The family of this 598-nucleotide part of an RNA from Gracilariopsis chorda is "Eukaryotic large subunit ribosomal RNA". The literature on the family includes a 2001 paper in Science by Yusupov et al., "Crystal structure of the ribosome at 5.5 A resolution". The family's consensus secondary structure is taken from published work. Its Rfam clan is "LSU clan".

[Rfam]
RNA sequence: GGAUCUCAAGUCAGACAAGGCGACCCGCUGAAUUUAAGCAUAUAAUUAAGCGGAGGAAAAGAAACUAACCAGGAUUCCCCUAGUAGCGGCGAGCGAAGCGGGAAAAGCCCAAUAUGAAAAGCCAGCUUGCUGGCGUUGUAGUUUGAGCGGCCUGCAGCUGUCAGUCUGGGAAAGUGGCAUGGAAAUGUCCACCGUGGAGGGUGAGAGUCCCGUCCAUCCCAGUCAGGGCAGUUGGUACGUGGCCGUUUCAGUCGAGUCGGGUAGCUUGGGAAUGCUGCUCUAAUCGGUGGUAAAUCUCAUCGAAGGCUAAAUACUGGUAGGAAACCGAUAGCGCACAAGUACCGUGAGGGAAAGGUGAAAAGCACUUUGAAAAGAGGGUGACAAGAACCUGAAACCGUUACGAGGGAAGCGGAUUGCAUCGAGUUGAUGGGUGUUUGCGCUUUCAGCCGGAAAAUUUUUUUUUGGUGGACUGGCGCAGACACUUACCCGUCGUGAGUUCUUGGCUGCCGAACCAACGGCGUGCCGAGGACUGUGGGAUCCCCUUUAUUGGGUGAGGACGAUGGGGCAGCGGUGCGAUACGACCCGUCUUGAAACACGG
Numbered sequence: 001g002g003a004u005c006u007c008a009a010g011u012c013a014g015a016c017a018a019g020g021c022g023a024c025c026c027g028c029u030g031a032a033u034u035u036a037a038g039c040a041u042a043u044a045a046u047u048a049a050g051c052g053g054a055g056g057a058a059a060a061g062a063a064a065c066u067a068a069c070c071a072g073g074a075u076u077c078c079c080c081u082a083g084u085a086g087c088g089g090c091g092a093g094c095g096a097a098g099c100g101g102g103a104a105a106a107g108c109c110c111a112a113u114a115u116g117a118a119a120a121g122c123c124a125g126c127u128u129g130c131u132g133g134c135g136u137u138g139u140a141g142u143u144u145g146a147g148c149g150g151c152c153u154g155c156a157g158c159u160g161u162c163a164g165u166c167u168g169g170g171a172a173a174g175u176g177g178c179a180u181g182g183a184a185a186u187g188u189c190c191a192c193c194g195u196g197g198a199g200g201g202u203g204a205g206a207g208u209c210c211c212g213u214c215c216a217u218c219c220c221a222g223u224c225a226g227g228g229c230a231g232u233u234g235g236u237a238c239g240u241g242g243c244c245g246u247u248u249c250a251g252u253c254g255a256g257u258c259g260g261g262u263a264g265c266u267u268g269g270g271a272a273u274g275c276u277g278c279u280c281u282a283a284u285c286g287g288u289g290g291u292a293a294a295u296c297u298c299a300u301c302g303a304a305g306g307c308u309a310a311a312u313a314c315u316g317g318u319a320g321g322a323a324a325c326c327g328a329u330a331g332c333g334c335a336c337a338a339g340u341a342c343c344g345u346g347a348g349g350g351a352a353a354g355g356u357g358a359a360a361a362g363c364a365c366u367u368u369g370a371a372a373a374g375a376g377g378g379u380g381a382c383a384a385g386a387a388c389c390u391g392a393a394a395c396c397g398u399u400a401c402g403a404g405g406g407a408a409g410c411g412g413a414u415u416g417c418a419u420c421g422a423g424u425u426g427a428u429g430g431g432u433g434u435u436u437g438c439g440c441u442u443u444c445a446g447c448c449g450g451a452a453a454a455u456u457u458u459u460u461u462u463u464g465g466u467g468g469a470c471u472g473g474c475g476c477a478g479a480c481a482c483u484u485a486c487c488c489g490u491c492g493u494g495a496g497u498u499c500u501u502g503g504c505u506g507c508c509g510a511a512c513c514a515a516c517g518g519c520g521u522g523c524c525g526a527g528g529a530c531u532g533u534g535g536g537a538u539c540c541c542c543u544u545u546a547u548u549g550g551g552u553g554a555g556g557a558c559g560a561u562g563g564g565g566c567a568g569c570g571g572u573g574c575g576a577u578a579c580g581a582c583c584c585g586u587c588u589u590g591a592a593a594c595a596c597g598g
Stems, first nucleotide, its partner, number of pairs: 024055001025053005035042002065072002076103004086094002106308004112143001115140002118137002121134005145249002147246004152242004156233007164224001166222005174190001176189004193197001200210002259280007285302005342349002365376004410580002413577009427484001430483007488562006583598004